The record is a 91-nucleotide RNA sequence from Tetraodon nigroviridis, which matches "Vault RNA" in Rfam.
Lineage of the source: Eukaryota > Clupeocephala > Eupercaria > Tetraodontoidei > Tetraodon.
By type it is a non-coding RNA gene.
It is one of the family's seed sequences.
[Rfam]
RNA sequence: GCGCCGGUUUAGCUCAGUGGUUACUUCUUGAAGUUCCCGCUUGCGGCUCGCGCGGGCUGCGGGUUCGCCACGGGCGCUGCCCGGCGUUUUG
Dot-bracket structure: .((((((....((((.((((......(.......................................))))))))).....)))))).....
Numbered sequence: 001g002c003g004c005c006g007g008u009u010u011a012g013c014u015c016a017g018u019g020g021u022u023a024c025u026u027c028u029u030g031a032a033g034u035u036c037c038c039g040c041u042u043g044c045g046g047c048u049c050g051c052g053c054g055g056g057c058u059g060c061g062g063g064u065u066c067g068c069c070a071c072g073g074g075c076g077c078u079g080c081c082c083g084g085c086g087u088u089u090u091g
Stems, first nucleotide, its partner, number of pairs: 002086006012075004017071004027067001